[Rfam]
RNA: Plastid psbT antisense RNA
Organism: Cajanus cajan
RNA sequence: GUAGUUGGAUAUUCAAGUUUUUGGAAUGCUCUAAAUUC
Numbered sequence: 001g002u003a004g005u006u007g008g009a010u011a012u013u014c015a016a017g018u019u020u021u022u023g024g025a026a027u028g029c030u031c032u033a034a035a036u037u038c
Stems, first nucleotide, its partner, number of pairs: 003018001005016004020035006